[Rfam]
RNA sequence: UACACCAAUCCUUUACUCGGAUCGUCCGGCACGUUCCUGCCGGUGAGGGGAAGUACCG
Numbered sequence: 001u002a003c004a005c006c007a008a009u010c011c012u013u014u015a016c017u018c019g020g021a022u023c024g025u026c027c028g029g030c031a032c033g034u035u036c037c038u039g040c041c042g043g044u045g046a047g048g049g050g051a052a053g054u055a056c057c058g
Base pairs, nucleotide, nucleotide: 009050010049011048012047013046014045015044026043027042028041029040030039031038
The record is a 58-nucleotide RNA sequence from Streptomyces clavuligerus, which matches "msiK RNA" in Rfam. Taxonomically the source falls in Streptomyces (Bacteria, Actinomycetota, Actinomycetes, Kitasatosporales). Rfam classes the family as a cis-regulatory element.